[Rfam]
RNA sequence: GUGAUGUUAAUGAAGGUCUGUGCUGAAAACAGGAUAACUGUGUGUACAGACUGGAUGUCCCCCAUCAC
Numbered sequence: 001g002u003g004a005u006g007u008u009a010a011u012g013a014a015g016g017u018c019u020g021u022g023c024u025g026a027a028a029a030c031a032g033g034a035u036a037a038c039u040g041u042g043u044g045u046a047c048a049g050a051c052u053g054g055a056u057g058u059c060c061c062c063c064a065u066c067a068c
Stems, first nucleotide, its partner, number of pairs: 001068005015052009030040003
Dot-bracket structure: (((((.........(((((((((......(((.....)))...)))))))))...........)))))